[Rfam]
RNA: bZIP non canonical Hac1/Xbp1 intron
RNA sequence: CCGCCCCCUCCGAUUUGACACAACAUCCUGCAGCGGUGUUGUGUGACCUGCAGUGUCAAUCGGAGGCCCGG
Numbered sequence: 001c002c003g004c005c006c007c008c009u010c011c012g013a014u015u016u017g018a019c020a021c022a023a024c025a026u027c028c029u030g031c032a033g034c035g036g037u038g039u040u041g042u043g044u045g046a047c048c049u050g051c052a053g054u055g056u057c058a059a060u061c062g063g064a065g066g067c068c069c070g071g
Stems, first nucleotide, its partner, number of pairs: 001071003006066002010063005022040006045057003